[Rfam]
RNA sequence: UUGACAUUGCUGAUUUUUUCACCUAAAUUCCUGGGUAAAGGGUGAGGGAGGCGAACCUCCCUCCUGCAUUCUCUCUGUUAAUAUGCUGGCCAGGCGAUGAUUAACAGGAUAAGCAGCAUGAUGAAGAGUCUCAUCAUCGUCCCUUUCCUUUUA
Numbered sequence: 001u002u003g004a005c006a007u008u009g010c011u012g013a014u015u016u017u018u019u020c021a022c023c024u025a026a027a028u029u030c031c032u033g034g035g036u037a038a039a040g041g042g043u044g045a046g047g048g049a050g051g052c053g054a055a056c057c058u059c060c061c062u063c064c065u066g067c068a069u070u071c072u073c074u075c076u077g078u079u080a081a082u083a084u085g086c087u088g089g090c091c092a093g094g095c096g097a098u099g100a101u102u103a104a105c106a107g108g109a110u111a112a113g114c115a116g117c118a119u120g121a122u123g124a125a126g127a128g129u130c131u132c133a134u135c136a137u138c139g140u141c142c143c144u145u146u147c148c149u150u151u152u153a
Stems, first nucleotide, its partner, number of pairs: 033148003038145005046061003064116004117139001118137006
About this RNA
The record is a 153-nucleotide RNA sequence from Klebsiella michiganensis, which matches "Short Intergenic Abundant RNA" in Rfam. Rfam links the family to the GO term mRNA binding. Rfam's curators write: This family contains multiple ncRNA from E. coli that were identified in a large scale screen of E. coli, were they were called candidates 43,55 and 61. These RNAs have also been identified by other groups and called QUAD RNAs. The base pairs follow the family's consensus structure, which was predicted with PFOLD. The organism belongs to Klebsiella, within Bacteria. The match comes from Rfam's covariance-model search (104 bits). For this family Rfam cites "Identification of novel small RNAs using comparative genomics and microarrays" (Wassarman et al., Genes Dev, 2001).